[Rfam]
RNA sequence: CGGCCGUUGACCCAAAAGCGAGGUAUAGAGUUCCUACGAGUUUUUCGGUUCUGUAGGAACUUCAUACCGUGCUCUUGGUCAAAUGGU
Number, nucleotide and partner (000 for none) at each position: 001c000002g000003g000004c000005c000006g000007u000008u000009g000010a000011c000012c078013c077014a076015a000016a000017a073018g072019c071020g070021a000022g068023g067024u066025a065026u064027a000028g062029a061030g060031u059032u058033c057034c056035u055036a054037c053038g000039a000040g000041u000042u000043u000044u000045u000046c000047g000048g000049u000050u000051c000052u000053g037054u036055a035056g034057g033058a032059a031060c030061u029062u028063c000064a026065u025066a024067c023068c022069g000070u020071g019072c018073u017074c000075u000076u014077g013078g012079u000080c000081a000082a000083a000084u000085g000086g000087u000

The family of this 87-nucleotide sequence from Nesidiocoris tenuis is "mir-276 microRNA precursor family".
A reference for the family is Skalsky et al. (2010), "Identification of microRNAs expressed in two mosquito vectors, Aedes albopictus and Culex quinquefasciatus", BMC Genomics.
Rfam 15.1 lists 200 matches to the family in 170 species.
Pairs were carried over by alignment from the consensus structure, which was predicted with RNAalifold.
Taxonomically the source falls in Nesidiocoris (Eukaryota, Arthropoda, Paraneoptera, Heteroptera).